RNA sequence: UGACUCCCUCCGACGAGCAUCUGAGGCAGGAACGGGGGACCCAUGUUUCUCUGGGCGUCGCCUCCUCGGCGCCCUUGGGGCGAAGCCGGACACGCAUGAGGCGUUCGGCCGGGCUCCCAGCCCGAACCCGACAGCUCACCUCGCAGGCGUAGGGGAAGGACCA
Number, nucleotide and partner (000 for none) at each position: 001u000002g000003a000004c000005u000006c000007c000008c000009u000010c000011c149012g148013a000014c146015g000016a000017g000018c000019a000020u031021c030022u029023g000024a000025g000026g000027c000028a000029g022030g021031a020032a000033c143034g142035g141036g140037g139038g000039a000040c000041c000042c077043a076044u000045g000046u000047u000048u000049c000050u000051c000052u000053g000054g000055g000056c000057g000058u000059c000060g000061c000062c000063u000064c000065c000066u000067c000068g000069g000070c000071g000072c000073c000074c000075u000076u043077g042078g129079g128080g127081c000082g000083a000084a000085g000086c108087c107088g106089g105090a104091c103092a000093c000094g000095c000096a000097u000098g000099a000100g000101g000102c000103g091104u090105u089106c088107g087108g086109c000110c000111g123112g122113g121114c120115u000116c000117c000118c000119a000120g114121c113122c112123c111124g000125a000126a000127c080128c079129c078130g000131a000132c000133a000134g000135c000136u000137c000138a000139c037140c036141u035142c034143g033144c000145a000146g014147g000148c012149g011150u000151a000152g000153g000154g000155g000156a000157a000158g000159g000160a000161c000162c000163a000
The record is a 163-nucleotide RNA from Parafrankia sp. EAN1pec, which matches "c-di-AMP riboswitch aptamer (ydaO/yuaA leader)" in Rfam.
Rfam's curators write: This family represents a conserved RNA structure found upstream of the ydaO and yuaA genes in Bacillus subtilis and related genes in other bacteria.
The organism belongs to Parafrankia, within Bacteria.
It is one of the family's seed sequences.